[Rfam]
RNA: Cripavirus internal ribosome entry site (IRES)
Organism: Cripavirus drosophilae
RNA sequence: GUUAAGAUGUGAUCUUGCUUCCUUAUACAAUUUUGAGAGGUUAAUAAGAAGGAAGUAGUGCUAUCUUAAUAAUUAGGUUAACUAUUUAGUUUUACUGUUCAGGAUGCCUAUUGGCAGCCCCAUAAUAUCCAGGACACCCUCUCUGCUUCUUAUAUGAUUAGGUUGUCAUUUAGAAUAAGAAAAUAACCUGCUAACU
Numbered sequence: 001g002u003u004a005a006g007a008u009g010u011g012a013u014c015u016u017g018c019u020u021c022c023u024u025a026u027a028c029a030a031u032u033u034u035g036a037g038a039g040g041u042u043a044a045u046a047a048g049a050a051g052g053a054a055g056u057a058g059u060g061c062u063a064u065c066u067u068a069a070u071a072a073u074u075a076g077g078u079u080a081a082c083u084a085u086u087u088a089g090u091u092u093u094a095c096u097g098u099u100c101a102g103g104a105u106g107c108c109u110a111u112u113g114g115c116a117g118c119c120c121c122a123u124a125a126u127a128u129c130c131a132g133g134a135c136a137c138c139c140u141c142u143c144u145g146c147u148u149c150u151u152a153u154a155u156g157a158u159u160a161g162g163u164u165g166u167c168a169u170u171u172a173g174a175a176u177a178a179g180a181a182a183a184u185a186a187c188c189u190g191c192u193a194a195c196u
Stems, first nucleotide, its partner, number of pairs: 001070009016057009026047001035143006074110005080091004097135004102130004112122003147175004154169005159190006